[Rfam]
RNA sequence: AUGAAAUUUAUGGGAGAGAUUUCUAAAUUUUAGAAACACCGAUGGGGCAAUUGAUAAAAUAUCACAGUUUUAUCAAGAAACUUUCAGGUAAAAAUACUAUAAAUGGAUA
Numbered sequence: 001a002u003g004a005a006a007u008u009u010a011u012g013g014g015a016g017a018g019a020u021u022u023c024u025a026a027a028u029u030u031u032a033g034a035a036a037c038a039c040c041g042a043u044g045g046g047g048c049a050a051u052u053g054a055u056a057a058a059a060u061a062u063c064a065c066a067g068u069u070u071u072a073u074c075a076a077g078a079a080a081c082u083u084u085c086a087g088g089u090a091a092a093a094a095u096a097c098u099a100u101a102a103a104u105g106g107a108u109a
Base pairs, nucleotide, nucleotide: 006104007103008102009101010100011099012098013097020036021035022034023033038089039088040087041085042084045083046082047081051076052075053074054073055072056071057070058069059068060067

The family of this 109-nucleotide RNA from Intestinibacter bartlettii is "Glycine riboswitch aptamer". This family represents the bacterial glycine riboswitch. It scores 56 bits against the family's covariance model.